Overview
A member of the RNA family "Rhodo-rpoB RNA" from Paracoccus yeei, 93 nucleotides long. Lineage of the source: Bacteria > Pseudomonadati > Pseudomonadota > Paracoccaceae > Paracoccus. A search with the family's covariance model found it, with a score of 58 bits. The family's RNA type in Rfam is cis-regulatory element.
[Rfam]
RNA sequence: GGUUCGGGAGCCGCGCGGUGGGACGGGCGGCACGAAUGGAACCCCACCCCUCAUUCGCCGCCUUGCGCCGGUCGGGCCCCGACGGCCGCUGCA
Numbered sequence: 001g002g003u004u005c006g007g008g009a010g011c012c013g014c015g016c017g018g019u020g021g022g023a024c025g026g027g028c029g030g031c032a033c034g035a036a037u038g039g040a041a042c043c044c045c046a047c048c049c050c051u052c053a054u055u056c057g058c059c060g061c062c063u064u065g066c067g068c069c070g071g072u073c074g075g076g077c078c079c080c081g082a083c084g085g086c087c088g089c090u091g092c093a
Stems, first nucleotide, its partner, number of pairs: 001043005010031005016025002064093004070087005